[Rfam]
RNA sequence: UGUAACGCUCAUCAAAGGAGUAGUUCCCCACCACAAAACUACUUUACCAUAUUGUGAAUUU
Numbered sequence: 001u002g003u004a005a006c007g008c009u010c011a012u013c014a015a016a017g018g019a020g021u022a023g024u025u026c027c028c029c030a031c032c033a034c035a036a037a038a039c040u041a042c043u044u045u046a047c048c049a050u051a052u053u054g055u056g057a058a059u060u061u
Stems, first nucleotide, its partner, number of pairs: 017045009